RNA: Group II catalytic intron D1-D4-3
RNA sequence: UUAGUUGUGAAGCUAGGACUGAAGGAAGCAGGACUACAAAAGUCGGUACUGACGAACAGGAAUCGCAUACAGAGGCAUAGCCAAUUUGGGUAAGCAAGCACAUCAUUGUAACGCCCACAAGAAAAGAUUGGUUAUGUAGAUGCGGCAGUUAUUGACGGGAAGAAAAAGCU
Numbered sequence: 001u002u003a004g005u006u007g008u009g010a011a012g013c014u015a016g017g018a019c020u021g022a023a024g025g026a027a028g029c030a031g032g033a034c035u036a037c038a039a040a041a042g043u044c045g046g047u048a049c050u051g052a053c054g055a056a057c058a059g060g061a062a063u064c065g066c067a068u069a070c071a072g073a074g075g076c077a078u079a080g081c082c083a084a085u086u087u088g089g090g091u092a093a094g095c096a097a098g099c100a101c102a103u104c105a106u107u108g109u110a111a112c113g114c115c116c117a118c119a120a121g122a123a124a125a126g127a128u129u130g131g132u133u134a135u136g137u138a139g140a141u142g143c144g145g146c147a148g149u150u151a152u153u154g155a156c157g158g159g160a161a162g163a164a165a166a167a168g169c170u
Stems, first nucleotide, its partner, number of pairs: 001016006030170002037162001042156005048149004063145006075137003079133007088116004094109004
Dot-bracket structure: ((((((....)))))).............((.....(....(((((.((((...........((((((......(((.(((((((..((((..((((........))))...))))..........))))))).)))..))))))))))..))))).....)......))